The family of this 155-nucleotide sequence from Urocolius indicus is "Small Cajal body specific RNA 1".
Pairs were carried over by alignment from the consensus structure, which was predicted with RNAalifold.
The source organism's lineage runs through Eukaryota, Opisthokonta, Bilateria, Gnathostomata and Urocolius.
The literature on the family includes a 2002 paper in EMBO J by Darzacq et al., "Cajal body-specific small nuclear RNAs: a novel class of 2'-O-methylation and pseudouridylation guide RNAs".
A search with the family's covariance model found it, with a score of 121 bits.
Rfam's curators write: scaRNAs are a specific class of small nuclear RNAs which localise to the Cajal bodies and guide the modification of RNA polymerase II transcribed spliceosomal RNAs U1, U2, U4, U5 and U12. ACA35 belong to the H/ACA box class of guide RNAs as it has the predicted hairpin-hinge-hairpin-tail structure, conserved H/ACA-box motifs and is found associated with GAR1. It is predicted to guide pseudouridylation of the U2 spliceosomal snRNA at residue U89.
[Rfam]
RNA sequence: GAGCACUUGAUACUAACCGAGCCAUCUGUACCCCAGAGGUCUGAGGUACACCUUGUGAUUGCUGGGUCUGAAAAGUGCAACAUUAAAACAAGCCAUGAAGUGUUUAAGCUCCGUGUGCAAAGGAUGACACUGGGUUAUAGCUCAGAGGCACAGAC
Numbered sequence: 001g002a003g004c005a006c007u008u009g010a011u012a013c014u015a016a017c018c019g020a021g022c023c024a025u026c027u028g029u030a031c032c033c034c035a036g037a038g039g040u041c042u043g044a045g046g047u048a049c050a051c052c053u054u055g056u057g058a059u060u061g062c063u064g065g066g067u068c069u070g071a072a073a074a075g076u077g078c079a080a081c082a083u084u085a086a087a088a089c090a091a092g093c094c095a096u097g098a099a100g101u102g103u104u105u106a107a108g109c110u111c112c113g114u115g116u117g118c119a120a121a122g123g124a125u126g127a128c129a130c131u132g133g134g135u136u137a138u139a140g141c142u143c144a145g146a147g148g149c150a151c152a153g154a155c
Stems, first nucleotide, its partner, number of pairs: 003078006016067003020063003024059003027050006033043001092149003113128002118123001130145006